[Rfam]
RNA sequence: CUCUUAUCAAGAGCAGGUGGAGGGACUGGCCCGAUGAAACCCGGCAACCGGCAUUUUUUAAAAUAAUUUUGCACGGUGCUAAUUCUUGCAGAAGUGUACCUUCUGAGAGAUGAGAG
Numbered sequence: 001c002u003c004u005u006a007u008c009a010a011g012a013g014c015a016g017g018u019g020g021a022g023g024g025a026c027u028g029g030c031c032c033g034a035u036g037a038a039a040c041c042c043g044g045c046a047a048c049c050g051g052c053a054u055u056u057u058u059u060a061a062a063a064u065a066a067u068u069u070u071g072c073a074c075g076g077u078g079c080u081a082a083u084u085c086u087u088g089c090a091g092a093a094g095u096g097u098a099c100c101u102u103c104u105g106a107g108a109g110a111u112g113a114g115a116g
Stems, first nucleotide, its partner, number of pairs: 001116008013042001016041003022032003026088001028086002043080004048076002050072001053069001084108001089105006
RNA: SAM riboswitch aptamer (S box leader)